Record summary:
The family of this 45-nucleotide sequence from Parabacteroides sp. AF48-14 is "Acido-Lenti-1 RNA". Rfam 15.1 lists 2,607 matches to the family in 171 species. By type it is a small RNA. The source organism's lineage runs through Bacteria, Bacteroidota, Bacteroidales, Tannerellaceae and Parabacteroides. The base pairs follow the family's consensus structure, which is taken from published work. It scores 47 bits against the family's covariance model.
RNA sequence: CCCAGGCUCACGCCCUGGGCUAAGUUCUGUCGCCCUUACAGGGCU
Number, nucleotide and partner (000 for none) at each position: 001c019002c018003c017004a016005g015006g013007c012008u000009c000010a000011c000012g007013c006014c000015c005016u004017g003018g002019g001020c000021u000022a000023a000024g000025u000026u000027c000028u000029g000030u000031c000032g044033c043034c042035c041036u040037u000038a000039c000040a036041g035042g034043g033044c032045u000